The record is a 131-nucleotide RNA from Sciurus carolinensis, which matches "Small nucleolar RNA SNORA49" in Rfam. A search with the family's covariance model found it, with a score of 130 bits. From the family's description: The snoRNA ACA49 has no identified RNA target. NB genomic sequence 1-nt different from published. The base pairs follow the family's consensus structure, which was predicted with RNAalifold. Rfam links the family to the GO terms nucleolus and RNA processing.
RNA sequence: CGUCCUCAGCCUUACUCCAGGGGCUUUUUUGCCGGUAAAGUGCCCUGGCAUUGCCUGAGGAUAAAGAGAAAGCACACACCCUCCCCACAAGACUUUGCUCUCUUGUGGGGCCUACAGACUGAGCUGACAGA
Numbered sequence: 001c002g003u004c005c006u007c008a009g010c011c012u013u014a015c016u017c018c019a020g021g022g023g024c025u026u027u028u029u030u031g032c033c034g035g036u037a038a039a040g041u042g043c044c045c046u047g048g049c050a051u052u053g054c055c056u057g058a059g060g061a062u063a064a065a066g067a068g069a070a071a072g073c074a075c076a077c078a079c080c081c082u083c084c085c086c087a088c089a090a091g092a093c094u095u096u097g098c099u100c101u102c103u104u105g106u107g108g109g110g111c112c113u114a115c116a117g118a119c120u121g122a123g124c125u126g127a128c129a130g131a
Base pairs, nucleotide, nucleotide: 003061004060005059006058007057008056009055011053017048018047019046020045021044022043023041024040025039026038027037071125072124073123075121076120083110084109085108086107087106088105089104090103091102092101
By type it is an H/ACA-box small nucleolar RNA.